[Rfam]
RNA sequence: UGGCUACAAAAUAACUUAUUCUGUAGCCACUUUGAGUUACGAUAAUUACUAUAUUAAUUUACGAGAUUAUAGUAACUCUAUACUAAGUGGUUUACUAUAACGUUAUGAUAAAUAUCUCCAUGUGUUAUAGUAACCCAACUAUCAUAAAUAUGUAUUGACAUCGUAAAUUAGAAUAUAAAAUUAUCGUAAAUGGAGGUGGCUACGGAAUAACUUAUUUUGUAGUUG
Numbered sequence: 001u002g003g004c005u006a007c008a009a010a011a012u013a014a015c016u017u018a019u020u021c022u023g024u025a026g027c028c029a030c031u032u033u034g035a036g037u038u039a040c041g042a043u044a045a046u047u048a049c050u051a052u053a054u055u056a057a058u059u060u061a062c063g064a065g066a067u068u069a070u071a072g073u074a075a076c077u078c079u080a081u082a083c084u085a086a087g088u089g090g091u092u093u094a095c096u097a098u099a100a101c102g103u104u105a106u107g108a109u110a111a112a113u114a115u116c117u118c119c120a121u122g123u124g125u126u127a128u129a130g131u132a133a134c135c136c137a138a139c140u141a142u143c144a145u146a147a148a149u150a151u152g153u154a155u156u157g158a159c160a161u162c163g164u165a166a167a168u169u170a171g172a173a174u175a176u177a178a179a180a181u182u183a184u185c186g187u188a189a190a191u192g193g194a195g196g197u198g199g200c201u202a203c204g205g206a207a208u209a210a211c212u213u214a215u216u217u218u219g220u221a222g223u224u225g
Stems, first nucleotide, its partner, number of pairs: 001225014016210018037189011050175003054171009065162003070157002074155001079148001081146002087142006093132011107117001